Small nucleolar RNA SNORA61: a 148-nucleotide RNA sequence from Neomonachus schauinslandi. The source organism's lineage runs through Eukaryota, Craniata, Teleostomi, Amniota and Neomonachus. Rfam links the family to the GO terms RNA processing and nucleolus. The match comes from Rfam's covariance-model search (84 bits). The family's RNA type in Rfam is H/ACA-box small nucleolar RNA. The base pairs follow the family's consensus structure, which was predicted with PFOLD. The family has 25 seed sequences and 881 matches in Rfam 15.1. From the family's description: ACA61 is a member of the H/ACA class of snoRNA that guide the sites of modification of uridines to pseudouridines.
[Rfam]
RNA sequence: ACCCUCCGGUUCCCUUUCCCAUUGGAUCUGAACGCUGGUCCUGGUAGAAGGGGGCAUACGAUUGGGAAAAGGAGGAAAAGGAACACCGAAGCUGGCCUCACAGUGCUUAUAGUCUGGCAUAUAGCUUAUGGCCUAGUUUCAAACAAGG
Numbered sequence: 001a002c003c004c005u006c007c008g009g010u011u012c013c014c015u016u017u018c019c020c021a022u023u024g025g026a027u028c029u030g031a032a033c034g035c036u037g038g039u040c041c042u043g044g045u046a047g048a049a050g051g052g053g054g055c056a057u058a059c060g061a062u063u064g065g066g067a068a069a070a071g072g073a074g075g076a077a078a079a080g081g082a083a084c085a086c087c088g089a090a091g092c093u094g095g096c097c098u099c100a101c102a103g104u105g106c107u108u109a110u111a112g113u114c115u116g117g118c119a120u121a122u123a124g125c126u127u128a129u130g131g132c133c134u135a136g137u138u139u140c141a142a143a144c145a146a147g148g
Base pairs, nucleotide, nucleotide: 003075004074005073006072007071019047021045022044023043025040026039027038028037092136093135094134095133097131098130110124